RNA: Small nucleolar RNA SNORA44
RNA sequence: CAGCAUGUUCCCAAGAUCUCUGGUUGCUUGUGGCCAAGGGAUCUCCAACUGCAUGCGAGAGCAACCUGGAGAGACUUUAACAGCUCAGGUCAGCGGAGUACCUGCAGCUGCCACUCAACUUUCCUAUAAUG
Numbered sequence: 001c002a003g004c005a006u007g008u009u010c011c012c013a014a015g016a017u018c019u020c021u022g023g024u025u026g027c028u029u030g031u032g033g034c035c036a037a038g039g040g041a042u043c044u045c046c047a048a049c050u051g052c053a054u055g056c057g058a059g060a061g062c063a064a065c066c067u068g069g070a071g072a073g074a075c076u077u078u079a080a081c082a083g084c085u086c087a088g089g090u091c092a093g094c095g096g097a098g099u100a101c102c103u104g105c106a107g108c109u110g111c112c113a114c115u116c117a118a119c120u121u122u123c124c125u126a127u128a129a130u131g
Stems, first nucleotide, its partner, number of pairs: 011039002018033002021030002068124006083111002086104004